RNA: Small nucleolar RNA SNORA15
Organism: Sclerurus mexicanus
Nucleotides: 134
Base pairs, nucleotide, nucleotide: 001057002056003055004054005053006052014044015043016042017041018040067127068126069125070123071122072121073120074119075118086114087113090112091111092110093109094108
Number, partner (000 for none) and nucleotide at each position: 001057g002056c003055a004054u005053g006052g007000c008000c009000g010000a011000a012000u013000u014044c015043u016042g017041c018040a019000c020000u021000a022000g023000c024000u025000u026000u027000c028000c029000u030000c031000a032000g033000u034000a035000g036000c037000u038000a039000a040018u041017g042016c043015a044014g045000u046000c047000a048000g049000a050000c051000a052006c053005c054004a055003u056002g057001c058000c059000a060000g061000a062000g063000c064000a065000a066000a067127u068126u069125c070123c071122u072121u073120u074119u075118u076000c077000a078000c079000u080000c081000u082000g083000c084000u085000u086114g087113g088000u089000g090112u091111g092110c093109u094108u095000u096000c097000c098000a099000u100000g101000u102000g103000g104000g105000a106000a107000u108094g109093g110092g111091c112090a113087u114086c115000c116000u117000u118075g119074g120073a121072a122071g123070g124000g125069g126068a127067a128000u129000a130000c131000a132000u133000a134000a